[Rfam]
RNA: tRNA
RNA sequence: GUGGAAGUAGCCUAACAGGUAAAGCACUGGAAUGAAAAUCCAGUUUAGAUGGUUCGAGUCCAUCCUUCCGCG
Numbered sequence: 001g002u003g004g005a006a007g008u009a010g011c012c013u014a015a016c017a018g019g020u021a022a023a024g025c026a027c028u029g030g031a032a033u034g035a036a037a038a039u040c041c042a043g044u045u046u047a048g049a050u051g052g053u054u055c056g057a058g059u060c061c062a063u064c065c066u067u068c069c070g071c072g
Stems, first nucleotide, its partner, number of pairs: 001071007010025002013022001027043005048064005